[Rfam]
The record is an 84-nucleotide sequence from Leptobrachium leishanense, which matches "mir-221 microRNA precursor family" in Rfam. The family has 72 seed sequences and 1,797 matches in Rfam 15.1. A reference for the family is Soares et al. (2009), "Parallel DNA pyrosequencing unveils new zebrafish microRNAs", BMC Genomics. The match comes from Rfam's covariance-model search (75 bits). The base pairs follow the family's consensus structure, which was predicted with RNAalifold.
RNA sequence: UUCGGCAUGCACCUGGCAUACAAUGUAGAAAUCUGUAUUUACUAUGCAACAGCUACAUUGUCUGCUGGGUUUCAAGCUCAAUGG
Number, nucleotide and partner (000 for none) at each position: 001u000002u000003c000004g000005g000006c000007a000008u000009g000010c000011a000012c000013c068014u067015g066016g065017c064018a063019u000020a061021c060022a059023a058024u057025g056026u055027a054028g053029a000030a000031a000032u000033c052034u051035g050036u049037a000038u000039u000040u000041a000042c000043u000044a000045u000046g000047c000048a000049a036050c035051a034052g033053c028054u027055a026056c025057a024058u023059u022060g021061u020062c000063u018064g017065c016066u015067g014068g013069g000070u000071u000072u000073c000074a000075a000076g000077c000078u000079c000080a000081a000082u000083g000084g000